[Rfam]
RNA sequence: AGUAGUAGCAGCAAAGUAGGGUGAAAAUCCCUACCGCCGAAAGGGCGCGGGUUCCUCGGCAAUGUUCGUCAGCCGAGGGUUAGCCGAUCCUAAGCUCUUCCUUAACACGAGGAGUGCGAAAGGGAAACGGGUUAAUAUUCCCGUGCCACCUGAGUACCUGCCGUAAGGCAACGCUCGAAACCUGACGCUUUGGGAUACGUCGAGUAGGAUGAUCUUCCUAUUUAACCUUUGAAACCCGGGGAGAGCCGUAAUGGCGAGAACCGGGUGAAAAAGGGAAUAGCCUACCGAUAUGGUGGGUUCGGCGAAUUCCUGGAGCUCGUGAAAAGGGAUUCGGGACUUGGAAUCCCAGGUGACCGUACCUAGAACCAACACAGGUGCCCCUAGGUGAUUAGCCUAAGGCGUGU
Numbered sequence: 001a002g003u004a005g006u007a008g009c010a011g012c013a014a015a016g017u018a019g020g021g022u023g024a025a026a027a028u029c030c031c032u033a034c035c036g037c038c039g040a041a042a043g044g045g046c047g048c049g050g051g052u053u054c055c056u057c058g059g060c061a062a063u064g065u066u067c068g069u070c071a072g073c074c075g076a077g078g079g080u081u082a083g084c085c086g087a088u089c090c091u092a093a094g095c096u097c098u099u100c101c102u103u104a105a106c107a108c109g110a111g112g113a114g115u116g117c118g119a120a121a122g123g124g125a126a127a128c129g130g131g132u133u134a135a136u137a138u139u140c141c142c143g144u145g146c147c148a149c150c151u152g153a154g155u156a157c158c159u160g161c162c163g164u165a166a167g168g169c170a171a172c173g174c175u176c177g178a179a180a181c182c183u184g185a186c187g188c189u190u191u192g193g194g195a196u197a198c199g200u201c202g203a204g205u206a207g208g209a210u211g212a213u214c215u216u217c218c219u220a221u222u223u224a225a226c227c228u229u230u231g232a233a234a235c236c237c238g239g240g241g242a243g244a245g246c247c248g249u250a251a252u253g254g255c256g257a258g259a260a261c262c263g264g265g266u267g268a269a270a271a272a273g274g275g276a277a278u279a280g281c282c283u284a285c286c287g288a289u290a291u292g293g294u295g296g297g298u299u300c301g302g303c304g305a306a307u308u309c310c311u312g313g314a315g316c317u318c319g320u321g322a323a324a325a326g327g328g329a330u331u332c333g334g335g336a337c338u339u340g341g342a343a344u345c346c347c348a349g350g351u352g353a354c355c356g357u358a359c360c361u362a363g364a365a366c367c368a369a370c371a372c373a374g375g376u377g378c379c380c381c382u383a384g385g386u387g388a389u390u391a392g393c394c395u396a397a398g399g400c401g402u403g404u
Base pairs, nucleotide, nucleotide: 016034017033018032019031020030021029035401036400037399038398043380044379045378046377049360050359054078055077056076057075058074059073063071064070085356086355089123090122094117095116097114098113099112101109127144128143129142130141131140147352148351149350150349151348152347154345181328182327183326187316188315189314190313191312192311193310194309195308198304199303200302201301202300203222204221205220206219207218208217226274227273228272229271235265236264237263238262239261245255246254247253286292366375367374382396383395384394385393
RNA: Archaeal large subunit ribosomal RNA, nucleotides 1399 to 1802
Organism: candidate division MSBL1 archaeon SCGC-AAA382K21